This 139-nucleotide RNA sequence from Podarcis lilfordi belongs to the Rfam family "Small nucleolar RNA SNORA75". Rfam describes the family as follows. U23 belongs to the H/ACA class of snoRNAs. snoRNAs bind a number of proteins (including dyskerin, Gar1p and Nop10p in the case of the H/ACA class) to form snoRNP complexes. It scores 82 bits against the family's covariance model. The family has 6 seed sequences and 414 matches in Rfam 15.1. On this family, see Ganot et al., Genes Dev 1997: "The family of box ACA small nucleolar RNAs is defined by an evolutionarily conserved secondary structure and ubiquitous sequence elements essential for RNA accumulation". Lineage of the source: Eukaryota > Deuterostomia > Chordata > Sauropsida > Podarcis.
[Rfam]
RNA sequence: GCCUUCUCAAUGAGCUCCUUCCUGCUGAUAAUCCAGUAGCAGGCUAUGGAUUCGCACGAGAAGAAGAGUAUAACUGCAGCCCUGACCUUGGGUGGCUUGUCUGCUUCAGAUGAGCAACUGUCAUUGCUGUGGGACAAGC
Numbered sequence: 001g002c003c004u005u006c007u008c009a010a011u012g013a014g015c016u017c018c019u020u021c022c023u024g025c026u027g028a029u030a031a032u033c034c035a036g037u038a039g040c041a042g043g044c045u046a047u048g049g050a051u052u053c054g055c056a057c058g059a060g061a062a063g064a065a066g067a068g069u070a071u072a073a074c075u076g077c078a079g080c081c082c083u084g085a086c087c088u089u090g091g092g093u094g095g096c097u098u099g100u101c102u103g104c105u106u107c108a109g110a111u112g113a114g115c116a117a118c119u120g121u122c123a124u125u126g127c128u129g130u131g132g133g134a135c136a137a138g139c
Stems, first nucleotide, its partner, number of pairs: 003063006014055002016050003022042005074132006096114006